[Rfam]
RNA sequence: CAACACGCCGCAGGAGAGACCGGGCUCAACGCACACGCGCGCAACGCCCGGCGCCGAUGGAGCAACCACCCCGGAAACUCUCAGGCAAAAGGACUGUGGCGUCGAC
Number, nucleotide and partner (000 for none) at each position: 001c000002a000003a000004c000005a000006c101007g100008c099009c098010g097011c096012a095013g094014g000015a000016g000017a000018g000019a000020c051021c050022g049023g048024g047025c046026u000027c000028a000029a000030c000031g000032c000033a000034c000035a000036c000037g000038c000039g000040c000041g000042c000043a000044a000045c000046g025047c024048c023049c022050g021051g020052c000053g086054c085055c084056g082057a081058u000059g000060g080061a079062g078063c000064a000065a000066c074067c073068a000069c000070c000071c000072c000073g067074g066075a000076a000077a000078c062079u061080c060081u057082c056083a000084g055085g054086c053087a000088a000089a000090a000091g000092g000093a000094c013095u012096g011097u010098g009099g008100c007101g006102u000103c000104g000105a000106c000
Description
Glycine riboswitch aptamer: a 106-nucleotide RNA from Ralstonia sp. 5_2_56FAA. The match comes from Rfam's covariance-model search (65 bits). Lineage of the source: Bacteria > Pseudomonadati > Pseudomonadota > Burkholderiaceae > Ralstonia.